The record is an 82-nucleotide sequence from Streptomyces resistomycificus, which matches "Streptomyces RNA 6106" in Rfam.
RNA sequence: ACGUCGCCCCAGGCGGCGCACAUGGCUCCAACGGGCCAGUGGCGGGGGUGGUGCCGUGUCGGCGCAGCACCACCCCCAACCU
Numbered sequence: 001a002c003g004u005c006g007c008c009c010c011a012g013g014c015g016g017c018g019c020a021c022a023u024g025g026c027u028c029c030a031a032c033g034g035g036c037c038a039g040u041g042g043c044g045g046g047g048g049u050g051g052u053g054c055c056g057u058g059u060c061g062g063c064g065c066a067g068c069a070c071c072a073c074c075c076c077c078a079a080c081c082u
Stems, first nucleotide, its partner, number of pairs: 002018006021041003025037001026035003044077011056065003
It is annotated as a small RNA. On this family, see Vockenhuber et al., RNA Biol 2011: "Deep sequencing-based identification of small non-coding RNAs in Streptomyces coelicolor". About the family: Identified by deep sequencing of transcriptome at the end of exponential growth phase. Appears smaller on northern blot than sequencing transcript. This indicates processing step. Streptomyces specific. A search with the family's covariance model found it, with a score of 63 bits.